[Rfam]
RNA sequence: AAUAAGAGAAUGACAAAUUAGAUUUUUCUUCUUGAUUUUCAGGCUUUUCCUUUUGAAAAAAAUUCAAAUCAAACUAAAAUUUGCUAAAAAUCAAAAGGAAAAAAAAUCUGAUAUGUCAUUCUCCUAUU
Numbered sequence: 001a002a003u004a005a006g007a008g009a010a011u012g013a014c015a016a017a018u019u020a021g022a023u024u025u026u027u028c029u030u031c032u033u034g035a036u037u038u039u040c041a042g043g044c045u046u047u048u049c050c051u052u053u054u055g056a057a058a059a060a061a062a063u064u065c066a067a068a069u070c071a072a073a074c075u076a077a078a079a080u081u082u083g084c085u086a087a088a089a090a091u092c093a094a095a096a097g098g099a100a101a102a103a104a105a106a107u108c109u110g111a112u113a114u115g116u117c118a119u120u121c122u123c124c125u126a127u128u
Stems, first nucleotide, its partner, number of pairs: 001128004006123010017112006023105005029099003032094008041085002046079003

This 128-nucleotide sequence from Gossypium gossypioides belongs to the Rfam family "MIR7504 microRNA precursor family".
NCBI's taxonomy places the organism under Eukaryota, Tracheophyta, Euphyllophyta, Malvoideae, Gossypium.